[Rfam]
The record is a 116-nucleotide RNA from Nomascus leucogenys, which matches "U5 spliceosomal RNA" in Rfam. The organism belongs to Nomascus, within Eukaryota. U5 RNA is a component of both types of known spliceosome. The precise function of this molecule is unknown, though it is known that the 5' loop is required for splice site selection and p220 binding, and that both the 3' stem-loop and the Sm site are important for Sm protein binding and cap methylation. Pairs were carried over by alignment from the consensus structure, which is taken from published work.

RNA sequence: AUACUCUGGUUUCUCUUCAAAUCGUAUAAAUCUUUCGCCUUUUACUAAAGAUUUCCGUGGAGAGAAACGAUUCCGAGUUUUAAACUAAUUUUUUGAGGCCUCAUGUUUGUGGGGCU
Numbered sequence: 001a002u003a004c005u006c007u008g009g010u011u012u013c014u015c016u017u018c019a020a021a022u023c024g025u026a027u028a029a030a031u032c033u034u035u036c037g038c039c040u041u042u043u044a045c046u047a048a049a050g051a052u053u054u055c056c057g058u059g060g061a062g063a064g065a066a067a068c069g070a071u072u073c074c075g076a077g078u079u080u081u082a083a084a085c086u087a088a089u090u091u092u093u094u095g096a097g098g099c100c101u102c103a104u105g106u107u108u109g110u111g112g113g114g115c116u
Stems, first nucleotide, its partner, number of pairs: 003078004009068011028054008096116001098115006